[Rfam]
RNA sequence: AUUAAAAACAUGAUUGAGUGCAGCGUAGAUGAAAACGAAUUGGAAAAUGAGCAAGUCCCAAAUGCCAAAUUAAAAGACUUAACAGAAAUUUUCAGAUAUUGUCAUCAACGCUGCACUCAAUCAUGUUUCUA
Numbered sequence: 001a002u003u004a005a006a007a008a009c010a011u012g013a014u015u016g017a018g019u020g021c022a023g024c025g026u027a028g029a030u031g032a033a034a035a036c037g038a039a040u041u042g043g044a045a046a047a048u049g050a051g052c053a054a055g056u057c058c059c060a061a062a063u064g065c066c067a068a069a070u071u072a073a074a075a076g077a078c079u080u081a082a083c084a085g086a087a088a089u090u091u092u093c094a095g096a097u098a099u100u101g102u103c104a105u106c107a108a109c110g111c112u113g114c115a116c117u118c119a120a121u122c123a124u125g126u127u128u129c130u131a
Stems, first nucleotide, its partner, number of pairs: 006128006013121014028106001030104003

This 131-nucleotide sequence from Anisodus acutangulus belongs to the Rfam family "MIR397 microRNA precursor family".
It scores 61 bits against the family's covariance model.
Pairs were carried over by alignment from the consensus structure, which was predicted with WAR.
On this family, see Mica et al., BMC Genomics 2009: "High throughput approaches reveal splicing of primary microRNA transcripts and tissue specific expression of mature microRNAs in Vitis vinifera".